[Rfam]
RNA sequence: CCCGCAGAAAGACGGAAAGACCCUGUGCACCUUUACUAUAGCUUGACAUUGGAUCUUGAACUAUCAUGUGUAGGAUAGGUGGGAGACUGUGAAGCGGGUACGCUAGUAUCUGUGGAGUCAACCUUGAAAUACCACCCUUGUUAGUUUAGGACUCUAAUCCCUCGCCGUGAUCCGGCAGGGAGACAGUGUCUGGUGGGUAGUUUGACUGGGGCGGUCGCCUCCCAAAGAGUAACGGAGGCGCGCAAAGGUUCCCUCAGGCUGAUUGGAAACCAGCCGUCGAGUGCAAACGCAUAAGGGAGCUUGACUGCGAGACAGACAUGUCGAGCAGGUACGAAAGUAGGUGUUAGUGAUCCGGUGGUCCCGCAUGGAAGGGCCAUCGCUCAUCGGAUAAAAGGUACGCCGGGGAUAACAGGCUGAUCGCAUCCAAGAGUUCACAUCGACGAUGCGGUUUGGCACCUCGAUGUCGGCUCAUCACAUCCUGGGGCUGGAGCAGGUCCCAAGGGUACGGCUGUUCGCCGUUUAAAGUGGUACGCGAGCUGGGUUUAAAACGUCGUGAGACAGUUUGGUCCCUAUCUUCUGUGGGCGUA
Numbered sequence: 001c002c003c004g005c006a007g008a009a010a011g012a013c014g015g016a017a018a019g020a021c022c023c024u025g026u027g028c029a030c031c032u033u034u035a036c037u038a039u040a041g042c043u044u045g046a047c048a049u050u051g052g053a054u055c056u057u058g059a060a061c062u063a064u065c066a067u068g069u070g071u072a073g074g075a076u077a078g079g080u081g082g083g084a085g086a087c088u089g090u091g092a093a094g095c096g097g098g099u100a101c102g103c104u105a106g107u108a109u110c111u112g113u114g115g116a117g118u119c120a121a122c123c124u125u126g127a128a129a130u131a132c133c134a135c136c137c138u139u140g141u142u143a144g145u146u147u148a149g150g151a152c153u154c155u156a157a158u159c160c161c162u163c164g165c166c167g168u169g170a171u172c173c174g175g176c177a178g179g180g181a182g183a184c185a186g187u188g189u190c191u192g193g194u195g196g197g198u199a200g201u202u203u204g205a206c207u208g209g210g211g212c213g214g215u216c217g218c219c220u221c222c223c224a225a226a227g228a229g230u231a232a233c234g235g236a237g238g239c240g241c242g243c244a245a246a247g248g249u250u251c252c253c254u255c256a257g258g259c260u261g262a263u264u265g266g267a268a269a270c271c272a273g274c275c276g277u278c279g280a281g282u283g284c285a286a287a288c289g290c291a292u293a294a295g296g297g298a299g300c301u302u303g304a305c306u307g308c309g310a311g312a313c314a315g316a317c318a319u320g321u322c323g324a325g326c327a328g329g330u331a332c333g334a335a336a337g338u339a340g341g342u343g344u345u346a347g348u349g350a351u352c353c354g355g356u357g358g359u360c361c362c363g364c365a366u367g368g369a370a371g372g373g374c375c376a377u378c379g380c381u382c383a384u385c386g387g388a389u390a391a392a393a394g395g396u397a398c399g400c401c402g403g404g405g406a407u408a409a410c411a412g413g414c415u416g417a418u419c420g421c422a423u424c425c426a427a428g429a430g431u432u433c434a435c436a437u438c439g440a441c442g443a444u445g446c447g448g449u450u451u452g453g454c455a456c457c458u459c460g461a462u463g464u465c466g467g468c469u470c471a472u473c474a475c476a477u478c479c480u481g482g483g484g485c486u487g488g489a490g491c492a493g494g495u496c497c498c499a500a501g502g503g504u505a506c507g508g509c510u511g512u513u514c515g516c517c518g519u520u521u522a523a524a525g526u527g528g529u530a531c532g533c534g535a536g537c538u539g540g541g542u543u544u545a546a547a548a549c550g551u552c553g554u555g556a557g558a559c560a561g562u563u564u565g566g567u568c569c570c571u572a573u574c575u576u577c578u579g580u581g582g583g584c585g586u587a
Stems, first nucleotide, its partner, number of pairs: 001583008010575003014570002022404004027400002029396005035201004042193002045190004051154002054151010065140002068137001078136005085119003094113008158181003162178001164176004204216004217239006240385001242342002248300006254280002257275005281290002305328004311322003330339003353379007361372002413454003417451001418448007428438002465540001466538004470532001471529005478503002481498006505519005546564004550559003
Dot-bracket structure: ((((((((.(((.((......((((.(((((((.((((...((.((((..((.((((((((((.((.(.........(((((..(((......((((((((....))))))))...)))............)))))).)).)))))))))).))...(((.(.((((.....)))).)))).....)))).))....))))..((((.....))))((((((...........))))))(.((....((((((((.(((((.........)))))...))((......))....))))))....((((..(((......)))..)))).(((....))).))..........(((((((.((........))))))))).....)......)))))..))))))........(((.((((((((...((.......))...)))))))..))))..........(((((((((((..((.((((((......))))))...)).(((((.....))))).....)))))..)..)))).).....(((((((....))).))))....))..)))))))))))....

The record is a 587-nucleotide part of an RNA from Desulfobulbus sp. Tol-SR, which matches "Bacterial large subunit ribosomal RNA" in Rfam. For this family Rfam cites "The comparative RNA web (CRW) site: an online database of comparative sequence and structure information for ribosomal, intron, and other RNAs" (Cannone et al., BMC Bioinformatics, 2002). Pairs were carried over by alignment from the consensus structure, which is taken from published work.